[Rfam]
RNA sequence: UUACUAUUUGCGCAAGUUUUUAUUUAUAUAGCUAUGCGCUAGCUCGUGAUAAUUCAAGUAUGAAUGAUGAACCAACGA
Numbered sequence: 001u002u003a004c005u006a007u008u009u010g011c012g013c014a015a016g017u018u019u020u021u022a023u024u025u026a027u028a029u030a031g032c033u034a035u036g037c038g039c040u041a042g043c044u045c046g047u048g049a050u051a052a053u054u055c056a057a058g059u060a061u062g063a064a065u066g067a068u069g070a071a072c073c074a075a076c077g078a
Stems, first nucleotide, its partner, number of pairs: 008052003011048003014025004031043004
Shown here is a 78-nucleotide RNA sequence from Listeria welshimeri, a member of the family "Listeria snRNA rli45".
By type it is an antisense RNA.
For this family Rfam cites "The Listeria transcriptional landscape from saprophytism to virulence" (Toledo-Arana et al., Nature, 2009).
The sequence is in the family's curated seed alignment.
NCBI's taxonomy places the organism under Bacteria, Bacillati, Caryophanales, Listeria, Listeria welshimeri.